[Rfam]
RNA sequence: CGGGCUGGCAAGACGGUCGCGUCGGCAUCCAUUCUCGUGAUGGGUGUCGCCGAGGAACGUCCGGGCUCCGCAGAGCAGGACGGUGGGUAACGCCCACCCGGGGUGACCCGCGAGACAGUGCCACAGAAAACAGACCGCCCGCGCGUGCGCGGGUAAGGGUGAAACGGCGGUGUAAGAGACCACCAGCGACCGGGGUGACCCGGCCGGCUCGGCAAACCUCGUCCGGAGCAAGGUCAGACAGGAAACCAUGAGGCUGCUCGUCUCGUUUCCGGGUAGACCGCUAGAGGGUCGCGGCAACGCGGCCCCGAGAUAGAUGGCCGUCCACGACGACCGCACCGAACGGCGCGGCACGUCCGGACAGAACCCGGCGUAUCAGCCGGCCCGUUCC
Numbered sequence: 001c002g003g004g005c006u007g008g009c010a011a012g013a014c015g016g017u018c019g020c021g022u023c024g025g026c027a028u029c030c031a032u033u034c035u036c037g038u039g040a041u042g043g044g045u046g047u048c049g050c051c052g053a054g055g056a057a058c059g060u061c062c063g064g065g066c067u068c069c070g071c072a073g074a075g076c077a078g079g080a081c082g083g084u085g086g087g088u089a090a091c092g093c094c095c096a097c098c099c100g101g102g103g104u105g106a107c108c109c110g111c112g113a114g115a116c117a118g119u120g121c122c123a124c125a126g127a128a129a130a131c132a133g134a135c136c137g138c139c140c141g142c143g144c145g146u147g148c149g150c151g152g153g154u155a156a157g158g159g160u161g162a163a164a165c166g167g168c169g170g171u172g173u174a175a176g177a178g179a180c181c182a183c184c185a186g187c188g189a190c191c192g193g194g195g196u197g198a199c200c201c202g203g204c205c206g207g208c209u210c211g212g213c214a215a216a217c218c219u220c221g222u223c224c225g226g227a228g229c230a231a232g233g234u235c236a237g238a239c240a241g242g243a244a245a246c247c248a249u250g251a252g253g254c255u256g257c258u259c260g261u262c263u264c265g266u267u268u269c270c271g272g273g274u275a276g277a278c279c280g281c282u283a284g285a286g287g288g289u290c291g292c293g294g295c296a297a298c299g300c301g302g303c304c305c306c307g308a309g310a311u312a313g314a315u316g317g318c319c320g321u322c323c324a325c326g327a328c329g330a331c332c333g334c335a336c337c338g339a340a341c342g343g344c345g346c347g348g349c350a351c352g353u354c355c356g357g358a359c360a361g362a363a364c365c366c367g368g369c370g371u372a373u374c375a376g377c378c379g380g381c382c383c384g385u386u387c388c
Stems, first nucleotide, its partner, number of pairs: 001384009011373001012322007020052002023049010057371003061368005066228004073259004078224005083097005098112001099110004113219002118217002120213003135158002137154007166184002169181003186208001187206002190203005232279004241270006250264005286305008
Bacterial RNase P class A: a 388-nucleotide sequence from Humibacter ginsenosidimutans. The organism belongs to Humibacter, within Bacteria.